[Rfam]
RNA sequence: ACUGGUUGGUGGCGUACUUCUCCCUGAAGGGCGAGGUUGUCAUGCACGGUCAAUACCUGGUGCAGAUACUCAAGCCCGCCUGAAGCGGGCUUUUUUUU
Numbered sequence: 001a002c003u004g005g006u007u008g009g010u011g012g013c014g015u016a017c018u019u020c021u022c023c024c025u026g027a028a029g030g031g032c033g034a035g036g037u038u039g040u041c042a043u044g045c046a047c048g049g050u051c052a053a054u055a056c057c058u059g060g061u062g063c064a065g066a067u068a069c070u071c072a073a074g075c076c077c078g079c080c081u082g083a084a085g086c087g088g089g090c091u092u093u094u095u096u097u098u
Stems, first nucleotide, its partner, number of pairs: 009043004014037002018033001020031003073091007
RNA: Tryptophan operon leader